[Rfam]
RNA sequence: UAAUUCAAUUAGGUUUAGGGUCUGAAAAACUCAUAAAUUUUGGUGUUGUCUAUCAGCUUCAUCUAUUGUUACUGGUGGAGACUGAAGUUAAACAACAACACUACAUCU
Numbered sequence: 001u002a003a004u005u006c007a008a009u010u011a012g013g014u015u016u017a018g019g020g021u022c023u024g025a026a027a028a029a030c031u032c033a034u035a036a037a038u039u040u041u042g043g044u045g046u047u048g049u050c051u052a053u054c055a056g057c058u059u060c061a062u063c064u065a066u067u068g069u070u071a072c073u074g075g076u077g078g079a080g081a082c083u084g085a086a087g088u089u090a091a092a093c094a095a096c097a098a099c100a101c102u103a104c105a106u107c108u
Stems, first nucleotide, its partner, number of pairs: 042102007055089006062081003